[Rfam]
RNA sequence: ACUUUAUUAUUCAACAGUAAAAAAAUGAAUUUGGUCAGGUCUUGAUUGAAGCAGCCAUAAGUUGUUUUAUUGUGUGGAUAAUAAGGUUUG
Numbered sequence: 001a002c003u004u005u006a007u008u009a010u011u012c013a014a015c016a017g018u019a020a021a022a023a024a025a026u027g028a029a030u031u032u033g034g035u036c037a038g039g040u041c042u043u044g045a046u047u048g049a050a051g052c053a054g055c056c057a058u059a060a061g062u063u064g065u066u067u068u069a070u071u072g073u074g075u076g077g078a079u080a081a082u083a084a085g086g087u088u089u090g
Base pairs, nucleotide, nucleotide: 001087002086003085004084005083006082007081008080009079010078011077012074014073015072016071017070018069019068021065024063025062026061032057033056034055035054040049041048